The record is a 173-nucleotide sequence, which matches "Group II catalytic intron D1-D4-3" in Rfam.
RNA sequence: GUCUUGGUAACAAGGGGUCUGGAGGAAGCCGAUAGCAAAACACUGGCCUGAUGAACAAGAAGCAGAUACUAGGCUUAUUCGAUGGGUAAAAGGUCUCAAAUACUCAAAGCCCUAAUACACGUACGGAGUCGAAUAAGUAUAUCUGACAGGCAUAAGUGUGAAAGCAGCGCGUC
Numbered sequence: 001g002u003c004u005u006g007g008u009a010a011c012a013a014g015g016g017g018u019c020u021g022g023a024g025g026a027a028g029c030c031g032a033u034a035g036c037a038a039a040a041c042a043c044u045g046g047c048c049u050g051a052u053g054a055a056c057a058a059g060a061a062g063c064a065g066a067u068a069c070u071a072g073g074c075u076u077a078u079u080c081g082a083u084g085g086g087u088a089a090a091a092g093g094u095c096u097c098a099a100a101u102a103c104u105c106a107a108a109g110c111c112c113u114a115a116u117a118c119a120c121g122u123a124c125g126g127a128g129u130c131g132a133a134u135a136a137g138u139a140u141a142u143c144u145g146a147c148a149g150g151c152a153u154a155a156g157u158g159u160g161a162a163a164g165c166a167g168c169g170c171g172u173c
Base pairs, nucleotide, nucleotide: 002015003014004013005012006011028173030171031170035165036164040159041158042157043156044155046151047150048149049148050147063145064144065143066142067141073138074137075136077134078133079132080131081130082129083128084112085111086110087109091104092103
The base pairs follow the family's consensus structure. It is one of the family's seed sequences.